[Rfam]
RNA sequence: GGCCCAGAGAAGCGAAGCGACUUGCCCAGGUUCACACAGCUGACAAGUGGCAGAGCCGGGAUUGUCUGCGGUGUGACCCUGGGCAAAUCGCUUCGCUUCUCUGGGCC
Numbered sequence: 001g002g003c004c005c006a007g008a009g010a011a012g013c014g015a016a017g018c019g020a021c022u023u024g025c026c027c028a029g030g031u032u033c034a035c036a037c038a039g040c041u042g043a044c045a046a047g048u049g050g051c052a053g054a055g056c057c058g059g060g061a062u063u064g065u066c067u068g069c070g071g072u073g074u075g076a077c078c079c080u081g082g083g084c085a086a087a088u089c090g091c092u093u094c095g096c097u098u099c100u101c102u103g104g105g106c107c
Base pairs, nucleotide, nucleotide: 001107002106003105004104005103006102007101008100009099011097012096016092017091018090019089020088022086023085024084025083026082027081028080029079030078032076033075034074035073036072
RNA: Epstein-Barr virus stable intronic sequence RNA 2
Organism: Ornithorhynchus anatinus